[Rfam]
RNA sequence: ACGUCGCCUGCGCGGCGUCCGAGCUCCUGGAAACGGGGCGAGCAAGCGGGGGUGGUGCCGUGUCGGCGCAGCACCACUCCCGCAUC
Numbered sequence: 001a002c003g004u005c006g007c008c009u010g011c012g013c014g015g016c017g018u019c020c021g022a023g024c025u026c027c028u029g030g031a032a033a034c035g036g037g038g039c040g041a042g043c044a045a046g047c048g049g050g051g052g053u054g055g056u057g058c059c060g061u062g063u064c065g066g067c068g069c070a071g072c073a074c075c076a077c078u079c080c081c082g083c084a085u086c
Stems, first nucleotide, its partner, number of pairs: 001018007021043001024040001025038005046083013060069003
Rfam assigns this 86-nucleotide sequence from Streptomyces albiflavescens to the family "Streptomyces RNA 6106". Taxonomically the source falls in Streptomyces (Bacteria, Bacillati, Actinomycetes, Streptomycetaceae). On this family, see Vockenhuber et al., RNA Biol 2011: "Deep sequencing-based identification of small non-coding RNAs in Streptomyces coelicolor". By type it is a small RNA.